[Rfam]
RNA: ZMP/ZTP riboswitch aptamer (pfl RNA motif)
Organism: Spirochaeta isovalerica
RNA sequence: UAUCCAUCCUGAAACUGACGGAUUAGGGGGAUUACCUCCGGGAAUCAGGAUCGAAGAGCCUCUUCGAAUUUUAAUGAAUGUCGACCGUCUGGGCAGAGAAU
Number, nucleotide and partner (000 for none) at each position: 001u000002a000003u054004c053005c000006a051007u050008c049009c048010u047011g046012a045013a000014a000015c042016u041017g089018a088019c087020g086021g085022a000023u000024u000025a000026g000027g038028g037029g036030g035031a000032u000033u000034a000035c030036c029037u028038c027039c000040g000041g016042g015043a000044a000045u012046c011047a010048g009049g008050a007051u006052c000053g004054a003055a000056g000057a000058g000059c000060c000061u000062c000063u000064u000065c000066g000067a000068a000069u000070u000071u000072u000073a000074a000075u000076g000077a000078a000079u095080g094081u093082c092083g000084a000085c021086c020087g019088u018089c017090u000091g000092g082093g081094c080095a079096g000097a000098g000099a000100a000101u000